Shown here is a 76-nucleotide RNA sequence from Enterococcus hirae, a member of the family "L17 ribosomal protein downstream element". It is annotated as a cis-regulatory element.
Nucleotides: 076
Base pairs, nucleotide, nucleotide: 002043003042004041005040011037012036013035017032018031019030020029021028051076052075053074054073055072056071057070058069059068
Number, partner (000 for none) and nucleotide at each position: 001000a002043g003042a004041g005040u006000g007000u008000u009000a010000u011037g012036a013035u014000g015000u016000u017032g018031g019030a020029a021028g022000u023000u024000a025000a026000c027000u028021c029020u030019u031018c032017c033000g034000a035013g036012u037011c038000u039000a040005g041004c042003u043002c044000a045000g046000c047000g048000c049000u050000a051076c052075u053074c054073c055072c056071c057070a058069a059068a060000u061000c062000u063000a064000u065000c066000g067000g068059u069058u070057u071056g072055g073054g074053g075052a076051g